[Rfam]
RNA sequence: AGAAAGGGCUUCUGUCACGAGUGGCCCACAUAGGGCAAGUCAGCUGCUCUUCAUGUGAAAUCGAUAUCAAGAGAUUUUGGAAGCAUAAUUUUUUGGCACAUGGGCAGCUGGUGAUUGUUGGUCCUGGUGCCCAU
Numbered sequence: 001a002g003a004a005a006g007g008g009c010u011u012c013u014g015u016c017a018c019g020a021g022u023g024g025c026c027c028a029c030a031u032a033g034g035g036c037a038a039g040u041c042a043g044c045u046g047c048u049c050u051u052c053a054u055g056u057g058a059a060a061u062c063g064a065u066a067u068c069a070a071g072a073g074a075u076u077u078u079g080g081a082a083g084c085a086u087a088a089u090u091u092u093u094u095g096g097c098a099c100a101u102g103g104g105c106a107g108c109u110g111g112u113g114a115u116u117g118u119u120g121g122u123c124c125u126g127g128u129g130c131c132c133a134u
Stems, first nucleotide, its partner, number of pairs: 008084005014025004027055002032050006056079007102132004107128005113123004